The family of this 122-nucleotide RNA from Ixodes scapularis is "U5 spliceosomal RNA".
On this family, see Thomas et al., Nucleic Acids Res 1990: "The spliceosomal snRNAs of Caenorhabditis elegans".
Rfam links the family to the GO terms spliceosomal tri-snRNP complex assembly and U5 snRNP.
[Rfam]
RNA sequence: CAGCUCAGGCCCGGUCUCAAAGCGAGCUAACCCUUCGCCUUUUACUAAAGGUUACCGUGCGAACGGGCCACUAUGAGCCUCUAGGCCAAUUUUUGGAUGGCCCUGAUCGUUUGACCGGGGCC
Numbered sequence: 001c002a003g004c005u006c007a008g009g010c011c012c013g014g015u016c017u018c019a020a021a022g023c024g025a026g027c028u029a030a031c032c033c034u035u036c037g038c039c040u041u042u043u044a045c046u047a048a049a050g051g052u053u054a055c056c057g058u059g060c061g062a063a064c065g066g067g068c069c070a071c072u073a074u075g076a077g078c079c080u081c082u083a084g085g086c087c088a089a090u091u092u093u094u095g096g097a098u099g100g101c102c103c104u105g106a107u108c109g110u111u112u113g114a115c116c117g118g119g120g121c122c
Base pairs, nucleotide, nucleotide: 003078004077005076006075009068010067011066012065013064015062016061018059019058028054029053030052031051032050034048035047099122100121101120102119103118104117